[Rfam]
RNA sequence: UUAAUAUUUCGGCCUAAUCUCUUAAAUGAGAACGGAGGACCCAAUUACUUGGGGUUAAUCCUGCUUUUGCAGGAGGGAUGAGAUUUUCUCUUUCGCCAUCCUACCCGUCAGCUAACUUCGUCGGCUAAAGCGAAGGAGGUC
Number, nucleotide and partner (000 for none) at each position: 001u000002u000003a000004a000005u000006a000007u000008u000009u000010c000011g126012g125013c124014c123015u000016a000017a000018u031019c030020u029021c000022u000023u000024a000025a000026a000027u000028g000029a020030g019031a018032a121033c120034g119035g118036a117037g116038g000039a000040c000041c000042c051043a050044a000045u000046u000047a000048c000049u000050u043051g042052g106053g105054g104055u000056u000057a000058a000059u000060c073061c072062u071063g070064c000065u000066u000067u000068u000069g000070c063071a062072g061073g060074a000075g000076g101077g100078a099079u098080g000081a000082g000083a000084u000085u000086u000087u000088c000089u000090c000091u000092u000093u000094c000095g000096c000097c000098a079099u078100c077101c076102u000103a000104c054105c053106c052107g000108u000109c000110a000111g000112c000113u000114a000115a000116c037117u036118u035119c034120g033121u032122c000123g014124g013125c012126u011127a000128a000129a000130g000131c000132g000133a000134a000135g000136g000137a000138g000139g000140u000141c000
A member of the RNA family "c-di-AMP riboswitch aptamer (ydaO/yuaA leader)" from Metabacillus lacus, 141 nucleotides long.
About the family: This family represents a conserved RNA structure found upstream of the ydaO and yuaA genes in Bacillus subtilis and related genes in other bacteria.
A search with the family's covariance model found it, with a score of 83 bits.
Pairs were carried over by alignment from the consensus structure.
The source organism's lineage runs through Bacteria, Bacilli, Caryophanales, Bacillaceae and Metabacillus.